[Rfam]
A member of the RNA family "mir-255 microRNA precursor family", 58 nucleotides long. Pairs were carried over by alignment from the consensus structure, which was predicted with RNAalifold.
RNA sequence: GUAAGAAAUCUUAGUAGUUUUCUCUUCUUACCUUGAAAACUGAAAAGAUUUUUUACAG
Numbered sequence: 001g002u003a004a005g006a007a008a009u010c011u012u013a014g015u016a017g018u019u020u021u022c023u024c025u026u027c028u029u030a031c032c033u034u035g036a037a038a039a040c041u042g043a044a045a046a047g048a049u050u051u052u053u054u055a056c057a058g
Base pairs, nucleotide, nucleotide: 001056002055003054004053005052006051007050008049009048010047011046012045015042016041017040018039019038020037021036022035

Gene Ontology terms of the family: RISC complex and miRNA-mediated post-transcriptional gene silencing. It scores 60 bits against the family's covariance model.